[Rfam]
This 93-nucleotide RNA sequence from Merluccius polli belongs to the Rfam family "Small nucleolar SNORD12/SNORD106".
The match comes from Rfam's covariance-model search (60 bits).
It is annotated as a C/D-box small nucleolar RNA.
Clan: SNORD12 clan.
The base pairs follow the family's consensus structure, which was predicted with RNAalifold.
RNA sequence: GAUGUGGUUAAUGAUGCACUACUUUUUUCCCCAUCUUAUCGACUCUGGUGAAAGCCAAGCUGAAAAUAAGCCAAUUAUGUCUGAAACCACAUC
Numbered sequence: 001g002a003u004g005u006g007g008u009u010a011a012u013g014a015u016g017c018a019c020u021a022c023u024u025u026u027u028u029c030c031c032c033a034u035c036u037u038a039u040c041g042a043c044u045c046u047g048g049u050g051a052a053a054g055c056c057a058a059g060c061u062g063a064a065a066a067u068a069a070g071c072c073a074a075u076u077a078u079g080u081c082u083g084a085a086a087c088c089a090c091a092u093c
Stems, first nucleotide, its partner, number of pairs: 001093009